[Rfam]
RNA: mir-737 microRNA precursor family
Organism: Tinamus guttatus
RNA sequence: UUAUUUUUUUAGGUUUUGACUUUUAUUACAUUUUCAUGGGAAAAUCAAAGCCUAAAGAAAAUG
Numbered sequence: 001u002u003a004u005u006u007u008u009u010u011a012g013g014u015u016u017u018g019a020c021u022u023u024u025a026u027u028a029c030a031u032u033u034u035c036a037u038g039g040g041a042a043a044a045u046c047a048a049a050g051c052c053u054a055a056a057g058a059a060a061a062u063g
Stems, first nucleotide, its partner, number of pairs: 004060016021043004